Shown here is an 86-nucleotide RNA sequence from Tripterygium wilfordii, a member of the family "Small nucleolar RNA Z122". The literature on the family includes a 2003 paper in Nucleic Acids Res by Chen et al., "The high diversity of snoRNAs in plants: identification and comparative study of 120 snoRNA genes from Oryza sativa". Rfam classes the family as a C/D-box small nucleolar RNA. The organism belongs to Tripterygium, within Eukaryota. The match comes from Rfam's covariance-model search (41 bits).
[Rfam]
RNA sequence: UUCUGAAAAUGAUGUGGGCACUGAUAGUUUAUCAGAGGCAUUAGCUGUGCUGAUCUAAUUUAUUUGCAUGUCAGUAUGAUCCUGAA
Numbered sequence: 001u002u003c004u005g006a007a008a009a010u011g012a013u014g015u016g017g018g019c020a021c022u023g024a025u026a027g028u029u030u031a032u033c034a035g036a037g038g039c040a041u042u043a044g045c046u047g048u049g050c051u052g053a054u055c056u057a058a059u060u061u062a063u064u065u066g067c068a069u070g071u072c073a074g075u076a077u078g079a080u081c082c083u084g085a086a
Stems, first nucleotide, its partner, number of pairs: 001086003005082001007080001